[Rfam]
RNA sequence: GGCUUUCUUCGCGGCGGAGCUCGACCGCCCCUCCCGGUUCUGAUCGACUACGUCCGCGUUCACAAGGACGAGUUCGGGGUCGAGCCGAUCUGUCGCGUGCUGUCCGAGCACGGGAUCAAGAUCGCCCCG
Numbered sequence: 001g002g003c004u005u006u007c008u009u010c011g012c013g014g015c016g017g018a019g020c021u022c023g024a025c026c027g028c029c030c031c032u033c034c035c036g037g038u039u040c041u042g043a044u045c046g047a048c049u050a051c052g053u054c055c056g057c058g059u060u061c062a063c064a065a066g067g068a069c070g071a072g073u074u075c076g077g078g079g080u081c082g083a084g085c086c087g088a089u090c091u092g093u094c095g096c097g098u099g100c101u102g103u104c105c106g107a108g109c110a111c112g113g114g115a116u117c118a119a120g121a122u123c124g125c126c127c128c129g
Base pairs, nucleotide, nucleotide: 013029014028015027016026017025075129076128077127078126079125086124087123089121090120091119